[Rfam]
RNA sequence: CAUCUGGGGUUAAUGUUAGCCCUCUUGCAGUGUAAACUGUAAGUAAUAAAGGUGGUCAAUUGCUGGAAACUCUGAGUAUCUCAAGGUAGGAUAUCGUGCAGUAAUGUCGCGACGCCCCCUGAAAAUCCGAGAGUGCAGACAAUCAGCAGCCGAGCUUCCUAAGGAAAUUCUGGAAGAAGGUUCAACGACUAAGAGAUUAUAUAAGUAAUUAUAUAAUCCGAACCACCUAUUCUUUUAAAUAGGAUAAAGAUAUAGUCUGUUCUCUAUGGCGACAUAGAG
Numbered sequence: 001c002a003u004c005u006g007g008g009g010u011u012a013a014u015g016u017u018a019g020c021c022c023u024c025u026u027g028c029a030g031u032g033u034a035a036a037c038u039g040u041a042a043g044u045a046a047u048a049a050a051g052g053u054g055g056u057c058a059a060u061u062g063c064u065g066g067a068a069a070c071u072c073u074g075a076g077u078a079u080c081u082c083a084a085g086g087u088a089g090g091a092u093a094u095c096g097u098g099c100a101g102u103a104a105u106g107u108c109g110c111g112a113c114g115c116c117c118c119c120u121g122a123a124a125a126u127c128c129g130a131g132a133g134u135g136c137a138g139a140c141a142a143u144c145a146g147c148a149g150c151c152g153a154g155c156u157u158c159c160u161a162a163g164g165a166a167a168u169u170c171u172g173g174a175a176g177a178a179g180g181u182u183c184a185a186c187g188a189c190u191a192a193g194a195g196a197u198u199a200u201a202u203a204a205g206u207a208a209u210u211a212u213a214u215a216a217u218c219c220g221a222a223c224c225a226c227c228u229a230u231u232c233u234u235u236u237a238a239a240u241a242g243g244a245u246a247a248a249g250a251u252a253u254a255g256u257c258u259g260u261u262c263u264c265u266a267u268g269g270c271g272a273c274a275u276a277g278a279g
Stems, first nucleotide, its partner, number of pairs: 006024004011019001013017001029038003050228005056222001061148006071139004149181002156174002185258001187257005230244004235239001264277005